Shown here is a 100-nucleotide RNA sequence from Ornithorhynchus anatinus, a member of the family "mir-130 microRNA precursor family". A search with the family's covariance model found it, with a score of 48 bits. For this family Rfam cites "Identification of tissue-specific microRNAs from mouse" (Lagos-Quintana et al., Curr Biol, 2002). The source organism's lineage runs through Eukaryota, Chordata, Craniata, Prototheria and Ornithorhynchus. Rfam links the family to the GO terms miRNA-mediated post-transcriptional gene silencing and RISC complex.

RNA sequence: CCCAAGCCCGGGCUCUUUCCACUGAGCCAUGCUGUCUACCUGGCCUGAAUCAUCUUCCAGAAAAGCAGCGUGGCUCAGUGGAAAGAGCACGGGCUUGGGA
Numbered sequence: 001c002c003c004a005a006g007c008c009c010g011g012g013c014u015c016u017u018u019c020c021a022c023u024g025a026g027c028c029a030u031g032c033u034g035u036c037u038a039c040c041u042g043g044c045c046u047g048a049a050u051c052a053u054c055u056u057c058c059a060g061a062a063a064a065g066c067a068g069c070g071u072g073g074c075u076c077a078g079u080g081g082a083a084a085g086a087g088c089a090c091g092g093g094c095u096u097g098g099g100a
Stems, first nucleotide, its partner, number of pairs: 002099002005095006012088008022078014